[Rfam]
RNA sequence: CUGUGUUGCAUUGCAGGUACAUUGCACUUUGCUGAUAAACACAUGCAAUGCAACUACAAUGCACUACAG
Numbered sequence: 001c002u003g004u005g006u007u008g009c010a011u012u013g014c015a016g017g018u019a020c021a022u023u024g025c026a027c028u029u030u031g032c033u034g035a036u037a038a039a040c041a042c043a044u045g046c047a048a049u050g051c052a053a054c055u056a057c058a059a060u061g062c063a064c065u066a067c068a069g
Base pairs, nucleotide, nucleotide: 001069002068003067004066007063008062009061010060011059012058013057015055016054021049022048023047024046025045026044
The record is a 69-nucleotide RNA from Cynoglossus semilaevis, which matches "mir-33 microRNA precursor family" in Rfam. The match comes from Rfam's covariance-model search (50 bits). Its family is annotated with RISC complex and gene silencing by miRNA in the Gene Ontology. The organism belongs to Cynoglossus, within Eukaryota. A reference for the family is Li et al. (2009), "Direct sequencing and expression analysis of a large number of miRNAs in Aedes aegypti and a multi-species survey of novel mosquito miRNAs", BMC Genomics.